[Rfam]
RNA sequence: CGAGCGGUAUCGUAAAGCCUGGUGACCUCGGUCACUCGUAGAGUGUCCUAGCUGUUCCUGAAAUGGAACGGGAAAUACUGAAAUCAGGGCCCAGGGUGAGCCGCUUC
Numbered sequence: 001c002g003a004g005c006g007g008u009a010u011c012g013u014a015a016a017g018c019c020u021g022g023u024g025a026c027c028u029c030g031g032u033c034a035c036u037c038g039u040a041g042a043g044u045g046u047c048c049u050a051g052c053u054g055u056u057c058c059u060g061a062a063a064u065g066g067a068a069c070g071g072g073a074a075a076u077a078c079u080g081a082a083a084u085c086a087g088g089g090c091c092c093a094g095g096g097u098g099a100g101c102c103g104c105u106u107c
Stems, first nucleotide, its partner, number of pairs: 002106006010099003018095005026089003033045005052071007
Dot-bracket structure: .((((((..(((.....(((((...(((....(((((...)))))......(((((((......)))))))...............))).))))).))).)))))).
RNA: DUF3800-III RNA